RNA sequence: GGAUGUGAGGGCGAUCUGGUUGCGACAUCUGUCACCCCAUUGAUCGCCAGGGUUGAUUCGGCUGAUCUGGCUGGCUAGGCGGGUGUCCCCUUCCUCCCUCACCGCUCCAUGUGCGUCCCUCCCGAAGCUGCGCGCUCGGUCGAAGAGGACGACCAUCCCCGAUAGAGGAGGACCGGUCUUCGGUCAAGGGUAUACGAGUAGCUGCGCUCCCCUGCUAGAACCUCCAAACAAGCUCUCUCUCUCUCUCUCUCAAGUGCACGUGGAAUAGAUCACAAGAUAGACGACACAAAAAUUUUAGCAAGUUUAUGACAGAUCAUCAAGCUGUUUUU
Numbered sequence: 001g002g003a004u005g006u007g008a009g010g011g012c013g014a015u016c017u018g019g020u021u022g023c024g025a026c027a028u029c030u031g032u033c034a035c036c037c038c039a040u041u042g043a044u045c046g047c048c049a050g051g052g053u054u055g056a057u058u059c060g061g062c063u064g065a066u067c068u069g070g071c072u073g074g075c076u077a078g079g080c081g082g083g084u085g086u087c088c089c090c091u092u093c094c095u096c097c098c099u100c101a102c103c104g105c106u107c108c109a110u111g112u113g114c115g116u117c118c119c120u121c122c123c124g125a126a127g128c129u130g131c132g133c134g135c136u137c138g139g140u141c142g143a144a145g146a147g148g149a150c151g152a153c154c155a156u157c158c159c160c161g162a163u164a165g166a167g168g169a170g171g172a173c174c175g176g177u178c179u180u181c182g183g184u185c186a187a188g189g190g191u192a193u194a195c196g197a198g199u200a201g202c203u204g205c206g207c208u209c210c211c212c213u214g215c216u217a218g219a220a221c222c223u224c225c226a227a228a229c230a231a232g233c234u235c236u237c238u239c240u241c242u243c244u245c246u247c248u249c250u251c252a253a254g255u256g257c258a259c260g261u262g263g264a265a266u267a268g269a270u271c272a273c274a275a276g277a278u279a280g281a282c283g284a285c286a287c288a289a290a291a292a293u294u295u296u297a298g299c300a301a302g303u304u305u306a307u308g309a310c311a312g313a314u315c316a317u318c319a320a321g322c323u324g325u326u327u328u329u
Stems, first nucleotide, its partner, number of pairs: 001108003005102007013093002018090002024087010035074002037070003042067004046062003116171002118168004122139004127135002140162003147158003201271001203269001208265001210263002213260002222254002228250001230248001232246001292329001296324004